[Rfam]
RNA: Potassium channel RNA editing signal
RNA sequence: UUGGGCUACGGUGACAUGUACCCAGAGACGUGGUCCGGGAUGCUGGUGGGUGCUCUGUGUGCCCUGGCUGGUGUGCUGACCAUUGCCAUGCCCGUUCCAGUCAUUGUCAACAAC
Numbered sequence: 001u002u003g004g005g006c007u008a009c010g011g012u013g014a015c016a017u018g019u020a021c022c023c024a025g026a027g028a029c030g031u032g033g034u035c036c037g038g039g040a041u042g043c044u045g046g047u048g049g050g051u052g053c054u055c056u057g058u059g060u061g062c063c064c065u066g067g068c069u070g071g072u073g074u075g076c077u078g079a080c081c082a083u084u085g086c087c088a089u090g091c092c093c094g095u096u097c098c099a100g101u102c103a104u105u106g107u108c109a110a111c112a113a114c
Stems, first nucleotide, its partner, number of pairs: 002113001004111001008107004013102003018097001020095002037077002040074001049063003